[Rfam]
mir-124 microRNA precursor family: an 88-nucleotide RNA from Dermatophagoides pteronyssinus. On this family, see Lim et al., Genes Dev 2003: "The microRNAs of Caenorhabditis elegans". NCBI's taxonomy places the organism under Eukaryota, Panarthropoda, Chelicerata, Arachnida, Dermatophagoides. The family's consensus secondary structure was predicted with PFOLD.
RNA sequence: UACUCUCCGUGUUCACUGUUUGCCUGAAUGUAUCGUAAAACCGAAAUAUGAAUUGAAAGCAUAAGGCACGCGGUGAAUGCCAAGAGUU
Numbered sequence: 001u002a003c004u005c006u007c008c009g010u011g012u013u014c015a016c017u018g019u020u021u022g023c024c025u026g027a028a029u030g031u032a033u034c035g036u037a038a039a040a041c042c043g044a045a046a047u048a049u050g051a052a053u054u055g056a057a058a059g060c061a062u063a064a065g066g067c068a069c070g071c072g073g074u075g076a077a078u079g080c081c082a083a084g085a086g087u088u
Stems, first nucleotide, its partner, number of pairs: 003086004009080008018071002023066003028062004